RNA sequence: UCAUCAUCCGAGGGGCGCCCGGCGACGGGCUGAGACGGCUUCGGCCGGACCCUUUGAACCUGAUCCGGGUCAUGCCGGCGAAGGGACGGGAGCAAACGGCGCG
Numbered sequence: 001u002c003a004u005c006a007u008c009c010g011a012g013g014g015g016c017g018c019c020c021g022g023c024g025a026c027g028g029g030c031u032g033a034g035a036c037g038g039c040u041u042c043g044g045c046c047g048g049a050c051c052c053u054u055u056g057a058a059c060c061u062g063a064u065c066c067g068g069g070u071c072a073u074g075c076c077g078g079c080g081a082a083g084g085g086a087c088g089g090g091a092g093c094a095a096a097c098g099g100c101g102c103g
Stems, first nucleotide, its partner, number of pairs: 007090004011053004016047001017030005037046003059084003065078004
Record summary: A member of the RNA family "TPP riboswitch aptamer (THI element)" from Chenggangzhangella methanolivorans, 103 nucleotides long. Its family is annotated with thiamine pyrophosphate binding in the Gene Ontology. Lineage of the source: Bacteria > Alphaproteobacteria > Hyphomicrobiales > Methylopilaceae > Chenggangzhangella. On this family, see Thore et al., J Am Chem Soc 2008: "Structural basis of thiamine pyrophosphate analogues binding to the eukaryotic riboswitch". It scores 78 bits against the family's covariance model. Pairs were carried over by alignment from the consensus structure, which is taken from published work.